[Rfam]
Nucleotides: 108
Base pairs, nucleotide, nucleotide: 006107007106008105009104011023012022013021014020025102026101027100028099029098030097034093035092036091037090040068041067042066043065044064045063046062069082070081071080
Number, partner (000 for none) and nucleotide at each position: 001000g002000g003000c004000g005000u006107g007106g008105c009104c010000g011023u012022g013021u014020c015000a016000a017000c018000c019000g020014g021013a022012c023011a024000u025102g026101a027100c028099g029098g030097g031000a032000a033000u034093g035092g036091a037090g038000a039000a040068c041067a042066c043065g044064g045063g046062a047000a048000u049000u050000u051000u052000u053000c054000c055000g056000g057000u058000u059000u060000c061000u062046u063045c064044c065043u066042g067041u068040g069082g070081c071080c072000a073000a074000c075000g076000c077000a078000a079000c080071g081070g082069c083000a084000g085000u086000c087000g088000a089000g090037c091036u092035u093034c094000u095000u096000a097030c098029c099028c100027g101026u102025u103000c104009g105008g106007c107006c108000u
Rfam assigns this 108-nucleotide sequence from Rhizobium subbaraonis to the family "Rhizobiales sRNA Atu_At1". The base pairs follow the family's consensus structure, which was predicted with CMfinder. A search with the family's covariance model found it, with a score of 109 bits. The family's RNA type in Rfam is small RNA.